The family of this 154-nucleotide RNA sequence from Burkholderia sp. Leaf177 is "Burkholderia sRNA 7". Pairs were carried over by alignment from the consensus structure, which was predicted with R-scape. The match comes from Rfam's covariance-model search (96 bits). NCBI's taxonomy places the organism under Bacteria, Pseudomonadota, Betaproteobacteria, Burkholderiales, Burkholderia. About the family: Did not show any change in expression in iron-depletion and hydrogen peroxide (oxidative stress) treatment. Constitutively expressed. Possibly targets the GTPase, ObgE.
RNA sequence: GUAUUCUUCGCAAAUGCUCAGCCUCCAGACCAAUCUUCGACGUCGCCGCUCGCUGCUCCCUUAGGGAUGCCGCUGGCUCGUCACGGAUUGGCGCUUGAUUUCAAGCCUGCGCACAUUUCGCCAACAUGAAGCCACGGACAUCCGUGGCUUUUUG
Number, nucleotide and partner (000 for none) at each position: 001g000002u000003a000004u000005u124006c000007u000008u000009c000010g094011c093012a000013a000014a000015u000016g000017c000018u090019c000020a000021g000022c000023c000024u000025c000026c000027a000028g000029a000030c086031c085032a000033a000034u000035c000036u000037u000038c080039g079040a078041c000042g077043u076044c075045g073046c072047c000048g070049c069050u000051c000052g000053c065054u000055g000056c000057u000058c000059c000060c000061u000062u000063a000064g000065g053066g000067a000068u000069g049070c048071c000072g046073c045074u000075g044076g043077c042078u040079c039080g038081u000082c000083a000084c000085g031086g030087a000088u000089u000090g018091g000092c000093g011094c010095u000096u000097g000098a000099u000100u000101u000102c000103a000104a000105g000106c000107c000108u000109g000110c000111g000112c000113a000114c000115a000116u000117u000118u000119c000120g000121c000122c000123a000124a005125c000126a000127u000128g151129a150130a149131g148132c147133c146134a145135c144136g143137g142138a000139c000140a000141u000142c137143c136144g135145u134146g133147g132148c131149u130150u129151u128152u000153u000154g000